[Rfam]
A member of the RNA family "SAM-I/IV (S-adenosyl methionine) riboswitch aptamer" from Bacteroidales bacterium 6E, 94 nucleotides long. NCBI's taxonomy places the organism under Bacteria, Pseudomonadati, Bacteroidota, Bacteroidia, Bacteroidales. For this family Rfam cites "The aptamer core of SAM-IV riboswitches mimics the ligand-binding site of SAM-I riboswitches" (Weinberg et al., RNA, 2008). The family has 417 seed sequences and 567 matches in Rfam 15.1.
RNA sequence: UACGUGCAUCAUGAAUCCCUUUGGGGAUACCAACCGGGUGGCACACCACGGUGGUUCAGCAUGCGGGCCAAACGAGCCAAAAAUGUGCAAACCU
Dot-bracket structure: .....((((.....(((((....)))))(((..((((((....[))).))).))).....)))).(((.......)))........].......